Record summary: Shown here is a 308-nucleotide RNA sequence from Flaviramulus basaltis, a member of the family "Bacterial RNase P class A". Pairs were carried over by alignment from the consensus structure, which is taken from published work. From the family's description: Ribonuclease P (RNase P) is a ubiquitous endoribonuclease, found in archaea, bacteria and eukarya as well as chloroplasts and mitochondria. Lineage of the source: Bacteria > Flavobacteriia > Flavobacteriales > Flavobacteriaceae > Flaviramulus.
RNA sequence: CAAGUAAAUCGCCUUAUCGCUGCUUAUUAAAAUAAGUGGAGGAAAGUCCGGACACCAAAGUGCAACAUAGUGGCUAAUAACCACCAGUCGUGAGGCUAGGAAAAGUGCAACAGAAAGUAUGUACAGGUCAUGCUGUAGUGAAACCAGGUAAACUCUAUGUGGUGCAAUGUCAUGUAUACCAACGUUUGAGGGCUGCACGCUCGAUUGUUGGAGGGUAGGCAGCUAAAGUGUAUUGGUAACAAUACACUCAGAUAAAUGAUAAGGGCUCUUUUUGAGUACAGAAUUCGGCUUAUAGAUUUACUUUACCA
Number, nucleotide and partner (000 for none) at each position: 001c000002a303003a302004g301005u300006a299007a298008a297009u296010c295011g293012c264013c263014u262015u261016a260017u259018c258019g000020c039021u038022g037023c036024u035025u034026a033027u032028u000029a000030a000031a000032a027033u026034a025035a024036g023037u022038g021039g020040a000041g000042g000043a000044a291045a290046g289047u000048c288049c287050g286051g285052a284053c164054a163055c162056c161057a000058a000059a000060g198061u197062g196063c195064a000065a160066c159067a158068u157069a156070g084071u083072g082073g081074c000075u000076a000077a000078u000079a000080a000081c073082c072083a071084c070085c099086a097087g096088u095089c094090g000091u000092g000093a000094g089095g088096c087097u086098a000099g085100g155101a154102a000103a000104a000105g153106u152107g149108c148109a000110a000111c000112a000113g000114a000115a000116a000117g000118u000119a000120u000121g000122u000123a000124c000125a000126g000127g000128u000129c000130a000131u000132g000133c000134u000135g000136u000137a000138g000139u000140g000141a000142a000143a000144c000145c000146a000147g000148g108149u107150a000151a000152a106153c105154u101155c100156u069157a068158u067159g066160u065161g056162g055163u054164g053165c000166a000167a000168u221169g220170u219171c218172a000173u000174g000175u000176a000177u000178a000179c211180c210181a209182a208183c207184g000185u000186u000187u000188g000189a000190g202191g201192g200193c199194u000195g063196c062197a061198c060199g193200c192201u191202c190203g000204a000205u000206u000207g183208u182209u181210g180211g179212a000213g000214g000215g000216u000217a000218g171219g170220c169221a168222g000223c000224u000225a000226a000227a000228g247229u246230g245231u244232a243233u242234u241235g240236g000237u000238a000239a000240c235241a234242a233243u232244a231245c230246a229247c228248u000249c000250a000251g000252a000253u000254a000255a000256a000257u000258g018259a017260u016261a015262a014263g013264g012265g000266c000267u000268c000269u000270u000271u000272u000273u000274g000275a000276g000277u000278a000279c000280a000281g000282a000283a000284u052285u051286c050287g049288g048289c046290u045291u044292a000293u011294a000295g010296a009297u008298u007299u006300a005301c004302u003303u002304u000305a000306c000307c000308a000